[Rfam]
Shown here is a 78-nucleotide RNA from Labrus bergylta, a member of the family "mir-196 microRNA precursor family". The organism belongs to Labrus, within Eukaryota. Rfam 15.1 lists 1,813 matches to the family in 642 species. The family's consensus secondary structure was predicted with PFOLD.
RNA sequence: UGUGUGAUGUAGGUAGUUUCAAGUUGUUGGGCUGAACGUCUUCAAAUCACAGGAACCUGAAACUGUCUGAAUCACACC
Numbered sequence: 001u002g003u004g005u006g007a008u009g010u011a012g013g014u015a016g017u018u019u020c021a022a023g024u025u026g027u028u029g030g031g032c033u034g035a036a037c038g039u040c041u042u043c044a045a046a047u048c049a050c051a052g053g054a055a056c057c058u059g060a061a062a063c064u065g066u067c068u069g070a071a072u073c074a075c076a077c078c
Stems, first nucleotide, its partner, number of pairs: 003076006010069010023056003027052003031048001